[Rfam]
RNA sequence: UGGAGGACUGAGAAGGUGAGGCAGUCCUGUACCGUGCUGCCUUCUACCGGUUAAGACCUCCGAGAGUGAAGGCCUGCCGAGGCAGAGGAUGUCCCUCUGCCGCCCUCGGAGGGGCAGCCCUGUGCUGGCCGACAUUUG
Dot-bracket structure: .(((((........(((((((((((..........)))))))..))))........)))))...................(((..((.(((.....(((((.((......)))))))...))).)).)))........
Numbered sequence: 001u002g003g004a005g006g007a008c009u010g011a012g013a014a015g016g017u018g019a020g021g022c023a024g025u026c027c028u029g030u031a032c033c034g035u036g037c038u039g040c041c042u043u044c045u046a047c048c049g050g051u052u053a054a055g056a057c058c059u060c061c062g063a064g065a066g067u068g069a070a071g072g073c074c075u076g077c078c079g080a081g082g083c084a085g086a087g088g089a090u091g092u093c094c095c096u097c098u099g100c101c102g103c104c105c106u107c108g109g110a111g112g113g114g115c116a117g118c119c120c121u122g123u124g125c126u127g128g129c130c131g132a133c134a135u136u137u138g
Stems, first nucleotide, its partner, number of pairs: 002061005015048004019042007081130003086126002089123003097117005103112002